[Rfam]
RNA sequence: CGGCACUAAGUCAUAAACAGGGUCCAGUUACAAAAAGCCCCGACUUAUUAAUCGGGGUUUUUUGUUAUUUGACAGCAAAAUCACUGGGCUUUAGGCCCUUUUUUU
Numbered sequence: 001c002g003g004c005a006c007u008a009a010g011u012c013a014u015a016a017a018c019a020g021g022g023u024c025c026a027g028u029u030a031c032a033a034a035a036a037g038c039c040c041c042g043a044c045u046u047a048u049u050a051a052u053c054g055g056g057g058u059u060u061u062u063u064g065u066u067a068u069u070u071g072a073c074a075g076c077a078a079a080a081u082c083a084c085u086g087g088g089c090u091u092u093a094g095g096c097c098c099u100u101u102u103u104u105u
Stems, first nucleotide, its partner, number of pairs: 034061009086098004